The record is a 208-nucleotide sequence, which matches "IS605-orfB-I RNA" in Rfam. The family's consensus secondary structure is taken from published work. By type it is a small RNA.
RNA sequence: GUCCUAUAUAGAUGUAUCAACGCAAGACAGUUGGGCAUUUCCCUUUAGGAUGUUGUUUAUUAGAAACUUCAGCAAUAAUCUUUAUUGUGUGGCUGCAUAAGUCGAAAUGAGGUGAGUUGAAGUGGAAUGGGUUAUCUGUAAGACCUUGAGUUGAAAAACUCUAAAAUUGACCUAGAGAUACAAUUUUGUAUUUUCUAGUUACAGUUGU
Numbered sequence: 001g002u003c004c005u006a007u008a009u010a011g012a013u014g015u016a017u018c019a020a021c022g023c024a025a026g027a028c029a030g031u032u033g034g035g036c037a038u039u040u041c042c043c044u045u046u047a048g049g050a051u052g053u054u055g056u057u058u059a060u061u062a063g064a065a066a067c068u069u070c071a072g073c074a075a076u077a078a079u080c081u082u083u084a085u086u087g088u089g090u091g092g093c094u095g096c097a098u099a100a101g102u103c104g105a106a107a108u109g110a111g112g113u114g115a116g117u118u119g120a121a122g123u124g125g126a127a128u129g130g131g132u133u134a135u136c137u138g139u140a141a142g143a144c145c146u147u148g149a150g151u152u153g154a155a156a157a158a159c160u161c162u163a164a165a166a167u168u169g170a171c172c173u174a175g176a177g178a179u180a181c182a183a184u185u186u187u188g189u190a191u192u193u194u195c196u197a198g199u200u201a202c203a204g205u206u207g208u
Base pairs, nucleotide, nucleotide: 001051002050003049004048005047006046008044010040011039012038013037014036015035017034018033019032020031021030022028066123067122068121069120070119071118072117073116080112081111082110083109084108085107086106091103092102094100129146130145131144132143133142136204137203138202139201140200141167148161149160150159151158152157172198173197174196175195176194177193178192179190180189181188182187
Dot-bracket structure: ((((((.(.((((((.((((((.....).)))))))))))...).))))))..............((((((((......(((((((....((.(.....).))..)))))))...)))))))).....(((((..[[[[[[))))).(((((....))))).....]....(((((((((((....)))).))))))).]]]]]....